[Rfam]
RNA sequence: ACUUCCCGACAGCAAACGCAAUGAGAGUUGCGCACGCAAAGCCACAGGCCCUCAGCCGGCGCACGCGCGCCGGGUCGGGCAGCUGGGUUGCAUCC
Numbered sequence: 001a002c003u004u005c006c007c008g009a010c011a012g013c014a015a016a017c018g019c020a021a022u023g024a025g026a027g028u029u030g031c032g033c034a035c036g037c038a039a040a041g042c043c044a045c046a047g048g049c050c051c052u053c054a055g056c057c058g059g060c061g062c063a064c065g066c067g068c069g070c071c072g073g074g075u076c077g078g079g080c081a082g083c084u085g086g087g088u089u090g091c092a093u094c095c
Stems, first nucleotide, its partner, number of pairs: 012037002017032006040089004045085003048080003056074002059071001
RNA: c-di-GMP-I riboswitch aptamer